The record is a 30-nucleotide RNA from Clostridium manihotivorum, which matches "CRISPR RNA direct repeat element" in Rfam. The organism belongs to Clostridium, within Bacteria.
RNA sequence: AUUUAAAUACAUCCCAUGUUAAGGUUAAUC
Numbered sequence: 001a002u003u004u005a006a007a008u009a010c011a012u013c014c015c016a017u018g019u020u021a022a023g024g025u026u027a028a029u030c
Stems, first nucleotide, its partner, number of pairs: 009019004